[Rfam]
RNA sequence: GCGACUCUGGAAAGCGAAGAUCGGCACGCGCCGUGGACGUGGCGCGGGCGGGCCUUCCACCGAAGGAGAAAACCGGCGUGCCCGCACGCCGGUGAAGCUCUCAGGUUUCCCGACAGAGGGGGAGUG
Numbered sequence: 001g002c003g004a005c006u007c008u009g010g011a012a013a014g015c016g017a018a019g020a021u022c023g024g025c026a027c028g029c030g031c032c033g034u035g036g037a038c039g040u041g042g043c044g045c046g047g048g049c050g051g052g053c054c055u056u057c058c059a060c061c062g063a064a065g066g067a068g069a070a071a072a073c074c075g076g077c078g079u080g081c082c083c084g085c086a087c088g089c090c091g092g093u094g095a096a097g098c099u100c101u102c103a104g105g106u107u108u109c110c111c112g113a114c115a116g117a118g119g120g121g122g123a124g125u126g
Stems, first nucleotide, its partner, number of pairs: 002121001005118005016057004059106003062102002066100003072093009